[Rfam]
RNA sequence: AGAACGAAUAGAGGCGCGGCUUUCAAAAGUAGCGGGAUCGAGGUUGCCAGAACCAUAGAAGUCUUGUGAAAGGGUAAGCUGCCGAAGGGGAUAUCCGGCAAGUUGACCCUGGUCGCAGCGGCCAACAGCUUUGCGACUGUCAUCAAGUAUGAUGGAGUGCUAUUUACUUA
Numbered sequence: 001a002g003a004a005c006g007a008a009u010a011g012a013g014g015c016g017c018g019g020c021u022u023u024c025a026a027a028a029g030u031a032g033c034g035g036g037a038u039c040g041a042g043g044u045u046g047c048c049a050g051a052a053c054c055a056u057a058g059a060a061g062u063c064u065u066g067u068g069a070a071a072g073g074g075u076a077a078g079c080u081g082c083c084g085a086a087g088g089g090g091a092u093a094u095c096c097g098g099c100a101a102g103u104u105g106a107c108c109c110u111g112g113u114c115g116c117a118g119c120g121g122c123c124a125a126c127a128g129c130u131u132u133g134c135g136a137c138u139g140u141c142a143u144c145a146a147g148u149a150u151g152a153u154g155g156a157g158u159g160c161u162a163u164u165u166a167c168u169u170a
Stems, first nucleotide, its partner, number of pairs: 006165006016082007024074001032067007086110004094102001111138008120129001140155006